The family of this 73-nucleotide sequence is "tRNA". The base pairs follow the family's consensus structure, which is taken from published work.
[Rfam]
RNA sequence: GCCCUCGUAGCUCAGGGGAUAGAGCACGGCUCUCCUAAAGCCGGUGUCGCAGGUUCGAAUCCUGCCGGGGGCA
Numbered sequence: 001g002c003c004c005u006c007g008u009a010g011c012u013c014a015g016g017g018g019a020u021a022g023a024g025c026a027c028g029g030c031u032c033u034c035c036u037a038a039a040g041c042c043g044g045u046g047u048c049g050c051a052g053g054u055u056c057g058a059a060u061c062c063u064g065c066c067g068g069g070g071g072c073a
Base pairs, nucleotide, nucleotide: 001072002071003070004069005068006067007066010025011024012023013022027043028042029041030040031039049065050064051063052062053061
Gene Ontology term of the family: triplet codon-amino acid adaptor activity. It scores 65 bits against the family's covariance model.